[Rfam]
RNA: Small nucleolar RNA R64/Z200 family
RNA sequence: GCUUGCGGUGAUGAAUUAUGAAUAAACUUCGCAUGUCAGACUUCGGAGAUGCUUCUGGCAUCCAUGAGAAGAUCUUUCAUACUACUGAGCAAUGC
Number, nucleotide and partner (000 for none) at each position: 001g095002c000003u092004u091005g090006c089007g000008g000009u000010g000011a000012u000013g000014a000015a000016u000017u000018a000019u000020g000021a000022a000023u000024a000025a000026a000027c000028u000029u000030c000031g000032c000033a000034u000035g000036u000037c000038a000039g000040a000041c000042u000043u000044c000045g000046g000047a000048g062049a061050u060051g059052c000053u000054u000055c000056u000057g000058g000059c051060a050061u049062c048063c000064a000065u000066g000067a000068g000069a000070a000071g000072a000073u000074c000075u000076u000077u000078c000079a000080u000081a000082c000083u000084a000085c000086u000087g000088a000089g006090c005091a004092a003093u000094g000095c001